[Rfam]
RNA sequence: GCAUGGGUGAAUUCUGCGUUGGCCUGACCGUGGCUGAUGGGGUCAGACACCAUGCGAAAUGAAACUCCGUUCUUAGCAGUUCCCUGUGGCGUCCUGGGUUAAACCUUAAGGCAGAAUGCCCGUGCUUGGAAUGGAUACAGAU
Numbered sequence: 001g002c003a004u005g006g007g008u009g010a011a012u013u014c015u016g017c018g019u020u021g022g023c024c025u026g027a028c029c030g031u032g033g034c035u036g037a038u039g040g041g042g043u044c045a046g047a048c049a050c051c052a053u054g055c056g057a058a059a060u061g062a063a064a065c066u067c068c069g070u071u072c073u074u075a076g077c078a079g080u081u082c083c084c085u086g087u088g089g090c091g092u093c094c095u096g097g098g099u100u101a102a103a104c105c106u107u108a109a110g111g112c113a114g115a116a117u118g119c120c121c122g123u124g125c126u127u128g129g130a131a132u133g134g135a136u137a138c139a140g141a142u
Stems, first nucleotide, its partner, number of pairs: 001055006014042002017039003066135003070131004075126002084124001088120005094114003
Rfam assigns this 142-nucleotide RNA sequence from Salvator merianae to the family "Small nucleolar RNA SNORA15". From the family's description: ACA15 is a member of the H/ACA class of snoRNA that guide the sites of modification of uridines to pseudouridines. The family's consensus secondary structure was predicted with RNAfold. The family's RNA type in Rfam is H/ACA-box small nucleolar RNA. Taxonomically the source falls in Salvator (Eukaryota, Opisthokonta, Sauria, Teiidae).